[Rfam]
RNA sequence: CAUAAACAAAGAUCUCCUAACUUUGUUUAGAAAUCCUAAAACUUUUCUUUUUCAUAAUAAUCUCCCGAAAACCACCUUGAAAGGUGGUUUUCUU
Numbered sequence: 001c002a003u004a005a006a007c008a009a010a011g012a013u014c015u016c017c018u019a020a021c022u023u024u025g026u027u028u029a030g031a032a033a034u035c036c037u038a039a040a041a042c043u044u045u046u047c048u049u050u051u052u053c054a055u056a057a058u059a060a061u062c063u064c065c066c067g068a069a070a071a072c073c074a075c076c077u078u079g080a081a082a083g084g085u086g087g088u089u090u091u092c093u094u
Stems, first nucleotide, its partner, number of pairs: 001030001003029009068091009

Cia-dependent small RNA csRNA1: a 94-nucleotide RNA sequence from Streptococcus gordonii.